Background
This 469-nucleotide RNA sequence from Membranihabitans marinus belongs to the Rfam family "Bacterial RNase P class A". A search with the family's covariance model found it, with a score of 226 bits. Lineage of the source: Bacteria > Pseudomonadati > Bacteroidota > Saprospiraceae > Membranihabitans. It is annotated as a ribozyme.
RNA sequence: GUUGCAGUCUGUUCUAUCGCUAUGGGAAAGCCCGUAGAGGAAAAUCCGGACAACGUAGAGAGUCGCACCACCUAACUGGUGGGCUUUGGUUUCUUGAAAACCAAAGACAGAAUAGUGCCACAGAAAACAAACCGUCCCCCAUUCCGAAGAAAUUCGGGAAGGGGGAUAAGGGUGAAAACGUGCGGUAAGAGCGCACGCUGUCAUGCAGUAAUGUGUGAUGGGGGUAAACCUUGCGAGUUGAAAUGCCAAAUAUAUUUCGGUAGGUCCGAAAGUGACCUUCCUGGUUUCUCGCCGGGAUCUUAAUCCACCGCUUUGACAUUGAUCAGAAACGUGGUGACGUAAAGUCAGGGCCGGAAGGGGUAGGCAGCUCGAUCCGGAUGGUGACAUCCGGGCUAGAUAAAUGAUAGAAUAUCUGUACUGGCUUAACCAGAGAAGAUAACAGAAUCCGGUUUACAGGACUGCAGCUUUU
Numbered sequence: 001g002u003u004g005c006a007g008u009c010u011g012u013u014c015u016a017u018c019g020c021u022a023u024g025g026g027a028a029a030g031c032c033c034g035u036a037g038a039g040g041a042a043a044a045u046c047c048g049g050a051c052a053a054c055g056u057a058g059a060g061a062g063u064c065g066c067a068c069c070a071c072c073u074a075a076c077u078g079g080u081g082g083g084c085u086u087u088g089g090u091u092u093c094u095u096g097a098a099a100a101c102c103a104a105a106g107a108c109a110g111a112a113u114a115g116u117g118c119c120a121c122a123g124a125a126a127a128c129a130a131a132c133c134g135u136c137c138c139c140c141a142u143u144c145c146g147a148a149g150a151a152a153u154u155c156g157g158g159a160a161g162g163g164g165g166a167u168a169a170g171g172g173u174g175a176a177a178a179c180g181u182g183c184g185g186u187a188a189g190a191g192c193g194c195a196c197g198c199u200g201u202c203a204u205g206c207a208g209u210a211a212u213g214u215g216u217g218a219u220g221g222g223g224g225u226a227a228a229c230c231u232u233g234c235g236a237g238u239u240g241a242a243a244u245g246c247c248a249a250a251u252a253u254a255u256u257u258c259g260g261u262a263g264g265u266c267c268g269a270a271a272g273u274g275a276c277c278u279u280c281c282u283g284g285u286u287u288c289u290c291g292c293c294g295g296g297a298u299c300u301u302a303a304u305c306c307a308c309c310g311c312u313u314u315g316a317c318a319u320u321g322a323u324c325a326g327a328a329a330c331g332u333g334g335u336g337a338c339g340u341a342a343a344g345u346c347a348g349g350g351c352c353g354g355a356a357g358g359g360g361u362a363g364g365c366a367g368c369u370c371g372a373u374c375c376g377g378a379u380g381g382u383g384a385c386a387u388c389c390g391g392g393c394u395a396g397a398u399a400a401a402u403g404a405u406a407g408a409a410u411a412u413c414u415g416u417a418c419u420g421g422c423u424u425a426a427c428c429a430g431a432g433a434a435g436a437u438a439a440c441a442g443a444a445u446c447c448g449g450u451u452u453a454c455a456g457g458a459c460u461g462c463a464g465c466u467u468u469u
Stems, first nucleotide, its partner, number of pairs: 001465010011454001012409007020037007042452003046449005051240004063236005068082005083108001084106009109231002115229002117225003132171002134167007142159007179197006199221001200219008244366004255356007373392008